Source information: The record is a 102-nucleotide RNA from Alkaliphilus peptidifermentans, which matches "Purine riboswitch aptamer" in Rfam. The family's consensus secondary structure is taken from published work.
RNA sequence: CUCACAAAUGAAUAAUUUGCUCGUAUAAUGUCGAUAAUAUGGUUCGACAGUCUCUACAGAAUGGCCGUAAAGCAUUCUACUAUGGGUGAAAGUGUACCUAGG
Numbered sequence: 001c002u003c004a005c006a007a008a009u010g011a012a013u014a015a016u017u018u019g020c021u022c023g024u025a026u027a028a029u030g031u032c033g034a035u036a037a038u039a040u041g042g043u044u045c046g047a048c049a050g051u052c053u054c055u056a057c058a059g060a061a062u063g064g065c066c067g068u069a070a071a072g073c074a075u076u077c078u079a080c081u082a083u084g085g086g087u088g089a090a091a092g093u094g095u096a097c098c099u100a101g102g
Stems, first nucleotide, its partner, number of pairs: 018088008029049006058078006
The organism belongs to Alkaliphilus peptidifermentans, within Bacteria. A search with the family's covariance model found it, with a score of 79 bits.